[Rfam]
RNA: mir-399 microRNA precursor family
RNA sequence: AUUUGUGUUACGGGGUGACUACUCUUCUGGCAGACGCACGAGCUAAAUGCUUAAUAAGCUACUGCUAAAGGAGAUUUGCCCCGCAAUACAACA
Numbered sequence: 001a002u003u004u005g006u007g008u009u010a011c012g013g014g015g016u017g018a019c020u021a022c023u024c025u026u027c028u029g030g031c032a033g034a035c036g037c038a039c040g041a042g043c044u045a046a047a048u049g050c051u052u053a054a055u056a057a058g059c060u061a062c063u064g065c066u067a068a069a070g071g072a073g074a075u076u077u078g079c080c081c082c083g084c085a086a087u088a089c090a091a092c093a
Stems, first nucleotide, its partner, number of pairs: 005089005011083008022073004028067006036059001
Dot-bracket structure: ....(((((.((((((((...((((..((((((..(......................)..))))))..))))..)))))))).)))))....